Shown here is a 90-nucleotide RNA sequence from Stagnimonas aquatica, a member of the family "Glycine riboswitch aptamer". The pairing is the family consensus, mapped onto this sequence. It scores 66 bits against the family's covariance model. The family is grouped with related families in Rfam's "Glycine riboswitch clan". The source organism's lineage runs through Bacteria, Pseudomonadati, Pseudomonadota, Nevskiales and Stagnimonas.
RNA sequence: GCGCCGCACGCGAGAGAGACCGGCCCUGGGCCGGCACCGAAGGCGCAAAUCCGCCCGGAAUCGCUCAGGUAAAAGGAUCGCGUGCGAUCC
Numbered sequence: 001g002c003g004c005c006g007c008a009c010g011c012g013a014g015a016g017a018g019a020c021c022g023g024c025c026c027u028g029g030g031c032c033g034g035c036a037c038c039g040a041a042g043g044c045g046c047a048a049a050u051c052c053g054c055c056c057g058g059a060a061u062c063g064c065u066c067a068g069g070u071a072a073a074a075g076g077a078u079c080g081c082g083u084g085c086g087a088u089c090c
Stems, first nucleotide, its partner, number of pairs: 006085008020034004036070003039066002043064003050057001